[Rfam]
RNA sequence: AAUCUUUUGGUUACAGCCUGGUUAAAAUUAGGCUGGUGGCUGGUGAUCAAAAAGUCACUGGCCU
Numbered sequence: 001a002a003u004c005u006u007u008u009g010g011u012u013a014c015a016g017c018c019u020g021g022u023u024a025a026a027a028u029u030a031g032g033c034u035g036g037u038g039g040c041u042g043g044u045g046a047u048c049a050a051a052a053a054g055u056c057a058c059u060g061g062c063c064u
Stems, first nucleotide, its partner, number of pairs: 014035005022027001038063010
The family of this 64-nucleotide RNA sequence from Pantoea sp. Nvir is "Pseudomonas sRNA P26".
The match comes from Rfam's covariance-model search (46 bits).
By type it is a non-coding RNA gene.
A reference for the family is Livny et al. (2006), "Identification of 17 Pseudomonas aeruginosa sRNAs and prediction of sRNA-encoding genes in 10 diverse pathogens using the bioinformatic tool sRNAPredict2", Nucleic Acids Res.
This small RNA (sRNA) was computationally identified in the genome of the opportunistic pathogen Pseudomonas aeruginosa and its expression verified by northern blot analysis. P26 is conserved across many Gammaproteobacteria species and appears to be consistently located between the DNA directed RNA polymerase (beta subunit) and 50S ribosomal protein L7/L12 genes.